[Rfam]
RNA sequence: GGGGGUGUUUCGGUUUCGACUGGCGGCAGAUCAGGCCAGGGGCUGCAAGCGGAGCGCCAACUCCUAAAACUAGCAAAAACAAUUAACUGCCAAAAAAGAAGACGAAGUCUCCUUCAACGCAGAAUACGCCUUCGCUGCCUAAUAGCACGAUGACGUACAGGUCCGAAUACUGCCGCUCUUAAGUAUCGGAUACCUGUAAAAGUAGGGGCUUACCCUUCCUAGUGCCUAUGGAUGAAGGGAACACCAAAGUAGGAUACAGAGGAUGGACGUUUUGUCAGUGAACCCAACGUCUUCUGGAAAAUUUGAUCACCGGCUAAGCUUGUAGACGUCACUGGGUGGCACGUUAGGACGGGGGUUCGAAUCCCCCCACCUCCAAAA
Numbered sequence: 001g002g003g004g005g006u007g008u009u010u011c012g013g014u015u016u017c018g019a020c021u022g023g024c025g026g027c028a029g030a031u032c033a034g035g036c037c038a039g040g041g042g043c044u045g046c047a048a049g050c051g052g053a054g055c056g057c058c059a060a061c062u063c064c065u066a067a068a069a070c071u072a073g074c075a076a077a078a079a080c081a082a083u084u085a086a087c088u089g090c091c092a093a094a095a096a097a098g099a100a101g102a103c104g105a106a107g108u109c110u111c112c113u114u115c116a117a118c119g120c121a122g123a124a125u126a127c128g129c130c131u132u133c134g135c136u137g138c139c140u141a142a143u144a145g146c147a148c149g150a151u152g153a154c155g156u157a158c159a160g161g162u163c164c165g166a167a168u169a170c171u172g173c174c175g176c177u178c179u180u181a182a183g184u185a186u187c188g189g190a191u192a193c194c195u196g197u198a199a200a201a202g203u204a205g206g207g208g209c210u211u212a213c214c215c216u217u218c219c220u221a222g223u224g225c226c227u228a229u230g231g232a233u234g235a236a237g238g239g240a241a242c243a244c245c246a247a248a249g250u251a252g253g254a255u256a257c258a259g260a261g262g263a264u265g266g267a268c269g270u271u272u273u274g275u276c277a278g279u280g281a282a283c284c285c286a287a288c289g290u291c292u293u294c295u296g297g298a299a300a301a302u303u304u305g306a307u308c309a310c311c312g313g314c315u316a317a318g319c320u321u322g323u324a325g326a327c328g329u330c331a332c333u334g335g336g337u338g339g340c341a342c343g344u345u346a347g348g349a350c351g352g353g354g355g356u357u358c359g360a361a362u363c364c365c366c367c368c369a370c371c372u373c374c375a376a377a378a
Base pairs, nucleotide, nucleotide: 001374002373003372004371005370006369007368020347021346022345023344024343025342034337036335037334038333039332041330042329043328046322047321048320049319050318051064052063053062054061056074057073059071130152132150133149134148136147137146138145156198157197158196159195160194161193163189164188165187166186169184170183171182175209176208177207178206180205213239214238215237216236217235218234220232225253226252227251228250257296258295259294260293261292262291263290264289265288269283270282271281274314275313276312278310279309280308351367352366353365354364355363

Shown here is a 378-nucleotide RNA from Sphaerochaeta globosa, a member of the family "transfer-messenger RNA". The family's RNA type in Rfam is non-coding RNA gene. Its family is annotated with RNA catabolic process in the Gene Ontology.